[Rfam]
RNA: Small nucleolar RNA SNORA28
RNA sequence: AAGCAACACUCUGUGGUAGAUACAUGGUUGUCUGCUACAAUUUACGCUUGCUACAGUAACCAUAGUCUCACCUAUUCCAGUGGUCUCUGUAGGUGAGGUCAUCUGUUAUAUAGACUCUUACAUC
Numbered sequence: 001a002a003g004c005a006a007c008a009c010u011c012u013g014u015g016g017u018a019g020a021u022a023c024a025u026g027g028u029u030g031u032c033u034g035c036u037a038c039a040a041u042u043u044a045c046g047c048u049u050g051c052u053a054c055a056g057u058a059a060c061c062a063u064a065g066u067c068u069c070a071c072c073u074a075u076u077c078c079a080g081u082g083g084u085c086u087c088u089g090u091a092g093g094u095g096a097g098g099u100c101a102u103c104u105g106u107u108a109u110a111u112a113g114a115c116u117c118u119u120a121c122a123u124c
Base pairs, nucleotide, nucleotide: 009046012039013038014037015036017034018033019032020031021030022029064116065115066114067113068112073110074109075108078105079104080103086098087097088096